[Rfam]
RNA: T-box leader
Organism: Alkaliphilus sp. B6464
RNA sequence: UUAUAGGCAUAGAAGAGGACAGUAGUAAAAGGGAUCUGCUUUCAGAGACAUAAUCGGUUGGUGAAAGAUUAUGACAGUACUUUUUAUGAAUAUCACCUCGGAGCUAAAGGUCUGAAAUAAUAGUAAGAUCUUUCGUAAGCAUACGUUACAUGCAUUGAGUGGUAGAAUAGUAAAUUAUAGUACUUUUAAUAGGCUAUGGUUUAAGCAUUAUUCUAUAAUCAGGGUGGUACCGCGAUAAAUUCGUCCCUAAG
Numbered sequence: 001u002u003a004u005a006g007g008c009a010u011a012g013a014a015g016a017g018g019a020c021a022g023u024a025g026u027a028a029a030a031g032g033g034a035u036c037u038g039c040u041u042u043c044a045g046a047g048a049c050a051u052a053a054u055c056g057g058u059u060g061g062u063g064a065a066a067g068a069u070u071a072u073g074a075c076a077g078u079a080c081u082u083u084u085u086a087u088g089a090a091u092a093u094c095a096c097c098u099c100g101g102a103g104c105u106a107a108a109g110g111u112c113u114g115a116a117a118u119a120a121u122a123g124u125a126a127g128a129u130c131u132u133u134c135g136u137a138a139g140c141a142u143a144c145g146u147u148a149c150a151u152g153c154a155u156u157g158a159g160u161g162g163u164a165g166a167a168u169a170g171u172a173a174a175u176u177a178u179a180g181u182a183c184u185u186u187u188a189a190u191a192g193g194c195u196a197u198g199g200u201u202u203a204a205g206c207a208u209u210a211u212u213c214u215a216u217a218a219u220c221a222g223g224g225u226g227g228u229a230c231c232g233c234g235a236u237a238a239a240u241u242c243g244u245c246c247c248u249a250a251g
Stems, first nucleotide, its partner, number of pairs: 007104002015099004025087006038075001040073001050072006107132007134145003162216010221248004232244004